The record is an 85-nucleotide RNA sequence from Dechloromonas sp. HYN0024, which matches "c-di-GMP-I riboswitch aptamer" in Rfam. The family is grouped with related families in Rfam's "c-di-GMP_I riboswitch clan". Rfam's curators write: GEMM was predicted in a large-scale screen for bacterial structured RNA regulatory elements. Pairs were carried over by alignment from the consensus structure, which is taken from published work. It scores 75 bits against the family's covariance model. Taxonomically the source falls in Dechloromonas (Bacteria, Pseudomonadati, Betaproteobacteria, Rhodocyclales).

[Rfam]
RNA sequence: GUUCCGUUUUGGCAAACCCAUUGAAAAGUGGGGACGCAAAGCCUCCGGCCUAACAACGAAAGUUCACGGCAGCGGGGUUGCCAGC
Numbered sequence: 001g002u003u004c005c006g007u008u009u010u011g012g013c014a015a016a017c018c019c020a021u022u023g024a025a026a027a028g029u030g031g032g033g034a035c036g037c038a039a040a041g042c043c044u045c046c047g048g049c050c051u052a053a054c055a056a057c058g059a060a061a062g063u064u065c066a067c068g069g070c071a072g073c074g075g076g077g078u079u080g081c082c083a084g085c
Stems, first nucleotide, its partner, number of pairs: 012037002017032006040079004045075003048070003055064003